RNA sequence: GCCUCAUUGGCUUAGAGGCAGAGCGUCCGUCUUGUAAACAGAAGGUCGCUGCUUCGAAUCCAGAAUGAGGCA
Numbered sequence: 001g002c003c004u005c006a007u008u009g010g011c012u013u014a015g016a017g018g019c020a021g022a023g024c025g026u027c028c029g030u031c032u033u034g035u036a037a038a039c040a041g042a043a044g045g046u047c048g049c050u051g052c053u054u055c056g057a058a059u060c061c062a063g064a065a066u067g068a069g070g071c072a
Base pairs, nucleotide, nucleotide: 001071002070003069004068005067006066007065010024011023012022013021026042027041029039030038049063050062051061
RNA: tRNA